[Rfam]
About this RNA:
Shown here is a 160-nucleotide RNA, a member of the family "DUF2693 RNA".

RNA sequence: GCUCUUUGACAUACUUGAUAUAAGGCGACAAUAGAAUAACUCACGCAGGUGCAAUGCCUGCACAGUGAUUAACAAUAUAGCUUGUAAGGUCAGACUUAGCGUGCUGACCGCUGAACGGCUUACGACCGACCCCCGCCCCUCGCAAAGGGCUUGCAAGCAC
Numbered sequence: 001g002c003u004c005u006u007u008g009a010c011a012u013a014c015u016u017g018a019u020a021u022a023a024g025g026c027g028a029c030a031a032u033a034g035a036a037u038a039a040c041u042c043a044c045g046c047a048g049g050u051g052c053a054a055u056g057c058c059u060g061c062a063c064a065g066u067g068a069u070u071a072a073c074a075a076u077a078u079a080g081c082u083u084g085u086a087a088g089g090u091c092a093g094a095c096u097u098a099g100c101g102u103g104c105u106g107a108c109c110g111c112u113g114a115a116c117g118g119c120u121u122a123c124g125a126c127c128g129a130c131c132c133c134c135g136c137c138c139c140u141c142g143c144a145a146a147g148g149g150c151u152u153g154c155a156a157g158c159a160c
Stems, first nucleotide, its partner, number of pairs: 045061005080158008088109006116128003135150004
It is annotated as a small RNA.